The record is a 122-nucleotide RNA sequence from Otolemur garnettii, which matches "Small nucleolar RNA SNORA27" in Rfam. Rfam 15.1 lists 819 matches to the family in 543 species. The base pairs follow the family's consensus structure. ACA27 is a member of the H/ACA class of snoRNA that guide the sites of modification of uridines to pseudouridines. Clan: SNORA27 clan. The organism belongs to Otolemur, within Eukaryota.
RNA sequence: AAUUCCUUAAUGGCCCAGUUAGACUUAUAUCUUUAUUGGUCAUGUAAGUGGGGCAAAGCAAAUAUCCUUUCAAAACUCAGGCAAACUGGUGUUUGUCUUGAAUCUUGUCAAAGGAAACAAAU
Numbered sequence: 001a002a003u004u005c006c007u008u009a010a011u012g013g014c015c016c017a018g019u020u021a022g023a024c025u026u027a028u029a030u031c032u033u034u035a036u037u038g039g040u041c042a043u044g045u046a047a048g049u050g051g052g053g054c055a056a057a058g059c060a061a062a063u064a065u066c067c068u069u070u071c072a073a074a075a076c077u078c079a080g081g082c083a084a085a086c087u088g089g090u091g092u093u094u095g096u097c098u099u100g101a102a103u104c105u106u107g108u109c110a111a112a113g114g115a116a117a118c119a120a121a122u
Stems, first nucleotide, its partner, number of pairs: 028055001030053003036047003065115006078100001079098008